This 74-nucleotide sequence from Thalassococcus sp. S3 belongs to the Rfam family "tRNA". Pairs were carried over by alignment from the consensus structure, which is taken from published work. Taxonomically the source falls in Thalassococcus (Bacteria, Pseudomonadota, Alphaproteobacteria, Rhodobacterales). The family's RNA type in Rfam is transfer RNA.
[Rfam]
RNA sequence: GACCCCUUAGCUCAACUGGAUAGAGCAGCUGACUUCUAAUCAGCAGGUUGAGGGUUCGAGUCCUUCAGGGGUCG
Numbered sequence: 001g002a003c004c005c006c007u008u009a010g011c012u013c014a015a016c017u018g019g020a021u022a023g024a025g026c027a028g029c030u031g032a033c034u035u036c037u038a039a040u041c042a043g044c045a046g047g048u049u050g051a052g053g054g055u056u057c058g059a060g061u062c063c064u065u066c067a068g069g070g071g072u073c074g
Base pairs, nucleotide, nucleotide: 001073002072003071004070005069006068007067010026011025012024013023028044029043030042031041032040050066051065052064053063054062